The family of this 71-nucleotide sequence from Leptonychotes weddellii is "Small nucleolar RNA SNORD113/SNORD114 family". For this family Rfam cites "Identification of tandemly-repeated C/D snoRNA genes at the imprinted human 14q32 domain reminiscent of those at the Prader-Willi/Angelman syndrome region" (Cavaille et al., Hum Mol Genet, 2002). Rfam describes the family as follows. The imprinted human domain at 14q32 contains two clusters of tandemly repeated small nucleolar RNAs named 14q(I) and 14q(II) snoRNAs. These two clusters are named SNORD113 and SNORD114 respectively in the HGNC approved gene symbol nomenclature. The snoRNAs found in both clusters are clearly related and are represented here by a single family.
RNA sequence: UGGAUCAGUGAUGACUGCUGGUGGCGUAUGAAUCAUAUAUGAUGAAUACUGUCUGCAACUCUGAGGUCCAA
Number, nucleotide and partner (000 for none) at each position: 001u000002g069003g068004a067005u066006c065007a000008g000009u000010g000011a000012u000013g000014a000015c000016u000017g000018c000019u000020g000021g000022u000023g000024g000025c000026g000027u000028a000029u000030g000031a000032a000033u000034c000035a000036u000037a000038u000039a000040u000041g000042a000043u000044g000045a000046a000047u000048a000049c000050u000051g000052u000053c000054u000055g000056c000057a000058a000059c000060u000061c000062u000063g000064a000065g006066g005067u004068c003069c002070a000071a000

The organism belongs to Leptonychotes, within Eukaryota. Rfam classes the family as a C/D-box small nucleolar RNA.